A member of the RNA family "RNase MRP" from Melipona bicolor, 302 nucleotides long. The family's consensus secondary structure is taken from published work. The family is grouped with related families in Rfam's "RNaseP clan". NCBI's taxonomy places the organism under Eukaryota, Arthropoda, Hexapoda, Endopterygota, Melipona.
[Rfam]
RNA sequence: GAGUUCCCUCGAGUAACGCGGCGGAGCCACAAUCGGAGUUCUCAGUGACUCUCAUGCUCUGAGGAAAGUCCCUGGACCUUGGACAGAAAGUGUUGUAGCAUUAACAGCUACUAGCCUCUCGUCGUCUUUCUCGAAUUUGAGACAGGAAGCUUUCGGCUGAUCUUUUCGGGUUAGGACGAGAGUGUAUUGGUCAAAGGAAAGUAAUGCGUUUCAAGUCAAAAAUAUUCUCUAUUUCAAUCUCCCUUCGUGGGGAGAGAAAGUGAGAAUUUGUCCAACUAAACAGGGCUUACUACGAGGGAAAG
Numbered sequence: 001g002a003g004u005u006c007c008c009u010c011g012a013g014u015a016a017c018g019c020g021g022c023g024g025a026g027c028c029a030c031a032a033u034c035g036g037a038g039u040u041c042u043c044a045g046u047g048a049c050u051c052u053c054a055u056g057c058u059c060u061g062a063g064g065a066a067a068g069u070c071c072c073u074g075g076a077c078c079u080u081g082g083a084c085a086g087a088a089a090g091u092g093u094u095g096u097a098g099c100a101u102u103a104a105c106a107g108c109u110a111c112u113a114g115c116c117u118c119u120c121g122u123c124g125u126c127u128u129u130c131u132c133g134a135a136u137u138u139g140a141g142a143c144a145g146g147a148a149g150c151u152u153u154c155g156g157c158u159g160a161u162c163u164u165u166u167c168g169g170g171u172u173a174g175g176a177c178g179a180g181a182g183u184g185u186a187u188u189g190g191u192c193a194a195a196g197g198a199a200a201g202u203a204a205u206g207c208g209u210u211u212c213a214a215g216u217c218a219a220a221a222a223u224a225u226u227c228u229c230u231a232u233u234u235c236a237a238u239c240u241c242c243c244u245u246c247g248u249g250g251g252g253a254g255a256g257a258a259a260g261u262g263a264g265a266a267u268u269u270g271u272c273c274a275a276c277u278a279a280a281c282a283g284g285g286c287u288u289a290c291u292a293c294g295a296g297g298g299a300a301a302g
Stems, first nucleotide, its partner, number of pairs: 004300008015210005022061006036051005066288003070285004082094004095111005114183002120178004125173001130170003139164004149157003215272001217270004
Rfam classes the family as a ribozyme. Rfam's curators write: RNase MRP is an enzymatically active ribonucleoprotein with two distinct roles in eukaryotes. In mitochondria it plays a direct role in the initiation of mitochondrial DNA replication.